[Rfam]
RNA: mir-1199 microRNA precursor family
Organism: Propithecus coquereli
RNA sequence: UGCGCCGGAGCCGGGGCCUGAGCCCGGGCCGAGCGAGCCGCGAACUCGUGGAGCUGCGCGUACGGCCGGUGCUGAGCCUGCCCGGCCCUGGCCCCGCGCC
Numbered sequence: 001u002g003c004g005c006c007g008g009a010g011c012c013g014g015g016g017c018c019u020g021a022g023c024c025c026g027g028g029c030c031g032a033g034c035g036a037g038c039c040g041c042g043a044a045c046u047c048g049u050g051g052a053g054c055u056g057c058g059c060g061u062a063c064g065g066c067c068g069g070u071g072c073u074g075a076g077c078c079u080g081c082c083c084g085g086c087c088c089u090g091g092c093c094c095c096g097c098g099c100c
Stems, first nucleotide, its partner, number of pairs: 002099004007095002010092009019075001021073003024069002027067005033061002037057002040054001045053003